[Rfam]
RNA: glmS glucosamine-6-phosphate activated ribozyme aptamer
RNA sequence: AUCACAUGACAAGCGCCCGGACUGAGGAGCAACGGCAGGCAUUUUCCUCAGUUGACGCGGUGGGGGUUGGCGAACGAUUCGGCGGAUACCCCCCGGUGUGCGGCCGCACCGAUUACAGACUUUGAAAUCUGUUGGGUGACCAACGGGACAAAAAGGCUGUAGGCUACGUA
Number, nucleotide and partner (000 for none) at each position: 001a000002u000003c000004a000005c000006a000007u000008g000009a000010c000011a000012a000013g000014c000015g000016c000017c000018c000019g000020g053021a052022c051023u050024g049025a048026g047027g046028a000029g044030c000031a000032a000033c000034g000035g000036c000037a000038g000039g000040c000041a000042u000043u000044u029045u000046c027047c026048u025049c024050a023051g022052u021053u020054g000055a000056c000057g000058c000059g000060g000061u000062g093063g092064g091065g090066g089067u000068u000069g000070g000071c081072g080073a079074a000075c000076g000077a000078u000079u073080c072081g071082g000083c000084g000085g000086a000087u000088a000089c066090c065091c064092c063093c062094c111095g110096g109097u108098g107099u106100g000101c000102g000103g000104c000105c000106g099107c098108a097109c096110c095111g094112a000113u000114u000115a160116c159117a158118g157119a000120c155121u154122u000123u000124g000125a000126a000127a000128u000129c146130u145131g144132u143133u142134g141135g140136g000137u000138g000139a000140c135141c134142a133143a132144c131145g130146g129147g000148a000149c000150a000151a000152a000153a000154a121155g120156g000157c118158u117159g116160u115161a000162g000163g000164c000165u000166a000167c000168g000169u000170a000